[Rfam]
RNA sequence: UAAGCUCAUCGCUCAGGGAGGUAAGGCCGCCAUCUGCGGCAUCUAUCUCUUCAACUGGGCGGUGAAAACA
Numbered sequence: 001u002a003a004g005c006u007c008a009u010c011g012c013u014c015a016g017g018g019a020g021g022u023a024a025g026g027c028c029g030c031c032a033u034c035u036g037c038g039g040c041a042u043c044u045a046u047c048u049c050u051u052c053a054a055c056u057g058g059g060c061g062g063u064g065a066a067a068a069c070a
Stems, first nucleotide, its partner, number of pairs: 006065011017050005026040005
Dot-bracket structure: .....((((((((((((((((....(((((.....))))).....)))))....))))))))))).....
RNA: Hepatitis C virus stem-loop VII